The family of this 76-nucleotide sequence from Iningainema tapete is "Cyano-1 RNA". The family's consensus secondary structure is taken from published work. It is annotated as a small RNA.
[Rfam]
RNA sequence: UUGUGUGUGAGGAGUCAAUGUAAAGCAGAAAGCGCUAGGGGUGGAAACACGGCAACACUCCCUAGCGCUUUUUGGU
Numbered sequence: 001u002u003g004u005g006u007g008u009g010a011g012g013a014g015u016c017a018a019u020g021u022a023a024a025g026c027a028g029a030a031a032g033c034g035c036u037a038g039g040g041g042u043g044g045a046a047a048c049a050c051g052g053c054a055a056c057a058c059u060c061c062c063u064a065g066c067g068c069u070u071u072u073u074g075g076u
Stems, first nucleotide, its partner, number of pairs: 029071005036064005041058003